[Rfam]
RNA sequence: ACGACCUCACACGGGCGCCCCACUGGUUAGGGGCCGAGACCGCGCCGAAGGAGCCGCGCGGGCACCGUUCGAACCUGCCUGGUUAGCACCAGCGAAGGAAGUAAGGAGCCAAUUCGU
Numbered sequence: 001a002c003g004a005c006c007u008c009a010c011a012c013g014g015g016c017g018c019c020c021c022a023c024u025g026g027u028u029a030g031g032g033g034c035c036g037a038g039a040c041c042g043c044g045c046c047g048a049a050g051g052a053g054c055c056g057c058g059c060g061g062g063c064a065c066c067g068u069u070c071g072a073a074c075c076u077g078c079c080u081g082g083u084u085a086g087c088a089c090c091a092g093c094g095a096a097g098g099a100a101g102u103a104a105g106g107a108g109c110c111a112a113u114u115c116g117u
Stems, first nucleotide, its partner, number of pairs: 006105002009102002011068004016061001017034005041060005074098003079092004